[Rfam]
RNA sequence: GGAGGACGGCCCUCCGGGAUCGGCUUUCAGGGGCAGGUCCCAAACCAGUCCGAGCUGCUGCGGUAAAGAGCCGUGGUAGUGAGCGUCGGAUGAAACGUUCGGGCGAGACCCGAGCAGGU
Numbered sequence: 001g002g003a004g005g006a007c008g009g010c011c012c013u014c015c016g017g018g019a020u021c022g023g024c025u026u027u028c029a030g031g032g033g034c035a036g037g038u039c040c041c042a043a044a045c046c047a048g049u050c051c052g053a054g055c056u057g058c059u060g061c062g063g064u065a066a067a068g069a070g071c072c073g074u075g076g077u078a079g080u081g082a083g084c085g086u087c088g089g090a091u092g093a094a095a096c097g098u099u100c101g102g103g104c105g106a107g108a109c110c111c112g113a114g115c116a117g118g119u
Base pairs, nucleotide, nucleotide: 001015002014003013004012005011016041017040018039019038020037021036023034024033025032026031046118048091049090050089051088052087053086054080055079057077058076059075061073062072063071064070097115098114099113100112101111102110
This 119-nucleotide RNA sequence from Mesorhizobium wenxiniae belongs to the Rfam family "Group II catalytic intron D1-D4-2". Pairs were carried over by alignment from the consensus structure. Taxonomically the source falls in Mesorhizobium (Bacteria, Pseudomonadota, Alphaproteobacteria, Phyllobacteriaceae). About the family: Group II introns are found in rRNA, tRNA and mRNA of organelles in fungi, plants and protists, and also in mRNA in bacteria. A reference for the family is Bonen and Vogel (2001), "The ins and outs of group II introns", Trends Genet. It scores 114 bits against the family's covariance model.